[Rfam]
RNA sequence: UCGCAUCCGCCAACCGGUUCAGCCGUGACGCGGAAGGUUUGUUAACCAGCUAACGCUUCCUUCAGGGAAGUGGAGGUCAGCG
Numbered sequence: 001u002c003g004c005a006u007c008c009g010c011c012a013a014c015c016g017g018u019u020c021a022g023c024c025g026u027g028a029c030g031c032g033g034a035a036g037g038u039u040u041g042u043u044a045a046c047c048a049g050c051u052a053a054c055g056c057u058u059c060c061u062u063c064a065g066g067g068a069a070g071u072g073g074a075g076g077u078c079a080g081c082g
Stems, first nucleotide, its partner, number of pairs: 002082003006034005015025004036047004049077003055071007